[Rfam]
RNA sequence: CGGGCUGUAGCGCAGGGGCUAGCGCGCUUGGUUCGGGACCAAGAAGUCGGCGGUUCAAAUCCGCCCAGCCCGA
Numbered sequence: 001c002g003g004g005c006u007g008u009a010g011c012g013c014a015g016g017g018g019c020u021a022g023c024g025c026g027c028u029u030g031g032u033u034c035g036g037g038a039c040c041a042a043g044a045a046g047u048c049g050g051c052g053g054u055u056c057a058a059a060u061c062c063g064c065c066c067a068g069c070c071c072g073a
Base pairs, nucleotide, nucleotide: 001072002071003070004069005068006067007066010025011024012023013022027043028042029041030040031039049065050064051063052062053061

Shown here is a 73-nucleotide RNA sequence from Sediminispirochaeta smaragdinae, a member of the family "tRNA". By type it is a transfer RNA. NCBI's taxonomy places the organism under Bacteria, Pseudomonadati, Spirochaetia, Spirochaetales, Sediminispirochaeta smaragdinae. Its Rfam clan is "tRNA clan".